[Rfam]
Mason-Pfizer monkey virus packaging signal: a 287-nucleotide RNA from Molossus molossus. The family's consensus secondary structure was predicted with PFOLD. Taxonomically the source falls in Molossus (Eukaryota, Deuterostomia, Vertebrata, Yangochiroptera). On this family, see Mustafa et al., Virus Res 2004: "Mutational analysis of the predicted secondary RNA structure of the Mason-Pfizer monkey virus packaging signal". The family has 9 seed sequences and 2,921 matches in Rfam 15.1.
RNA sequence: UGGCGCCCAACGUGGGGCUCCAGCAUGGGGGAUCCAGUGAAGGACGCCAUUCGAGUGGCCGGCAGAAAGGAAAGCAAAGAAAAAGAAAGUAAAAGAAAAGGGGGAACAACGUGGGAACCUUCUACGUCUGCAUCCCUUGGGUAAGUGAACGGCGAUUAUGGGUCAAGCAUUGAGCCAAGAUAAUAUGUUCAUUGAAGGACUAGGAAAGGCUAUCAAGGCACAAGGAGUAAAGGUAAAAAUUAAGCAUUUGUGUCAGUAUUUUGAAUAUGUUAAGGAAGUUUGCCCUU
Numbered sequence: 001u002g003g004c005g006c007c008c009a010a011c012g013u014g015g016g017g018c019u020c021c022a023g024c025a026u027g028g029g030g031g032a033u034c035c036a037g038u039g040a041a042g043g044a045c046g047c048c049a050u051u052c053g054a055g056u057g058g059c060c061g062g063c064a065g066a067a068a069g070g071a072a073a074g075c076a077a078a079g080a081a082a083a084a085g086a087a088a089g090u091a092a093a094a095g096a097a098a099a100g101g102g103g104g105a106a107c108a109a110c111g112u113g114g115g116a117a118c119c120u121u122c123u124a125c126g127u128c129u130g131c132a133u134c135c136c137u138u139g140g141g142u143a144a145g146u147g148a149a150c151g152g153c154g155a156u157u158a159u160g161g162g163u164c165a166a167g168c169a170u171u172g173a174g175c176c177a178a179g180a181u182a183a184u185a186u187g188u189u190c191a192u193u194g195a196a197g198g199a200c201u202a203g204g205a206a207a208g209g210c211u212a213u214c215a216a217g218g219c220a221c222a223a224g225g226a227g228u229a230a231a232g233g234u235a236a237a238a239a240u241u242a243a244g245c246a247u248u249u250g251u252g253u254c255a256g257u258a259u260u261u262u263g264a265a266u267a268u269g270u271u272a273a274g275g276a277a278g279u280u281u282g283c284c285c286u287u
Stems, first nucleotide, its partner, number of pairs: 006031003012026003036051004101135002107130002110126005146165003150162001153160002172213001174210003221263005227257002231249004272287004